[Rfam]
A member of the RNA family "c-di-AMP riboswitch aptamer (ydaO/yuaA leader)" from Paenibacillus thalictri, 143 nucleotides long.
RNA sequence: AGAAAAAUCUUGCCGAAUUUCCUCUUGAAAUGAGGAAAACGGGGGAACCACUCUUUGGGUGAAUUGAUCUCGCAGUCAAGGGAUCAUAGGGAACCUUCAACCGAACCCUAAAGCUAACCUCGUAGGCUCCGGAAGGAGUAUUU
Numbered sequence: 001a002g003a004a005a006a007a008u009c010u011u012g013c014c015g016a017a018u019u020u021c022c023u024c025u026u027g028a029a030a031u032g033a034g035g036a037a038a039a040c041g042g043g044g045g046a047a048c049c050a051c052u053c054u055u056u057g058g059g060u061g062a063a064u065u066g067a068u069c070u071c072g073c074a075g076u077c078a079a080g081g082g083a084u085c086a087u088a089g090g091g092a093a094c095c096u097u098c099a100a101c102c103g104a105a106c107c108c109u110a111a112a113g114c115u116a117a118c119c120u121c122g123u124a125g126g127c128u129c130c131g132g133a134a135g136g137a138g139u140a141u142u143u
Stems, first nucleotide, its partner, number of pairs: 012127003018038007039123006050055001057108003065086007089102002

Description
It scores 70 bits against the family's covariance model. The family has 106 seed sequences and 7,607 matches in Rfam 15.1. Taxonomically the source falls in Paenibacillus (Bacteria, Bacillati, Bacilli, Caryophanales).